[Rfam]
Source information
The record is a 189-nucleotide sequence from Dissostichus mawsoni, which matches "U2 spliceosomal RNA" in Rfam. It is annotated as a spliceosomal small nuclear RNA. The organism belongs to Dissostichus, within Eukaryota.
RNA sequence: GAAGCUUUGUUAUAAUAAAAAAAAAAAAAAAAAAAAUCUGUUCUUAUCAGUUUAAUAUCUGAUACGUCCCCUAUACGGGGACUAUAUAUUAAAUGGAUUUUUAGCACUGGGAGCUGAAAGAGGGGCUUGCCCCGUUCACUCCACGCAUCGACCCGGUAUUGCAGCGCCUCCGGGAACGGUGCCCAUCUC
Numbered sequence: 001g002a003a004g005c006u007u008u009g010u011u012a013u014a015a016u017a018a019a020a021a022a023a024a025a026a027a028a029a030a031a032a033a034a035a036a037u038c039u040g041u042u043c044u045u046a047u048c049a050g051u052u053u054a055a056u057a058u059c060u061g062a063u064a065c066g067u068c069c070c071c072u073a074u075a076c077g078g079g080g081a082c083u084a085u086a087u088a089u090u091a092a093a094u095g096g097a098u099u100u101u102u103a104g105c106a107c108u109g110g111g112a113g114c115u116g117a118a119a120g121a122g123g124g125g126c127u128u129g130c131c132c133c134g135u136u137c138a139c140u141c142c143a144c145g146c147a148u149c150g151a152c153c154c155g156g157u158a159u160u161g162c163a164g165c166g167c168c169u170c171c172g173g174g175a176a177c178g179g180u181g182c183c184c185a186u187c188u189c
Base pairs, nucleotide, nucleotide: 007024008023045064046063047062048061049060050059066082067081068080069079070078071077110142111141112140113139116136117135122133123132124131125130145182146181147180148179149178150177152174153173154172155171156170